[Rfam]
RNA sequence: UUUGAUCGACCCCAGCCACAGCGGCGGUCCCGACCGGUCGCGCUGCCCGUAGGUCGCCAGCACGGCCUGGGCCUC
Numbered sequence: 001u002u003u004g005a006u007c008g009a010c011c012c013c014a015g016c017c018a019c020a021g022c023g024g025c026g027g028u029c030c031c032g033a034c035c036g037g038u039c040g041c042g043c044u045g046c047c048c049g050u051a052g053g054u055c056g057c058c059a060g061c062a063c064g065g066c067c068u069g070g071g072c073c074u075c
Stems, first nucleotide, its partner, number of pairs: 015025003034069001038065002043060003047056001049054001
RNA: ASpks TB sRNA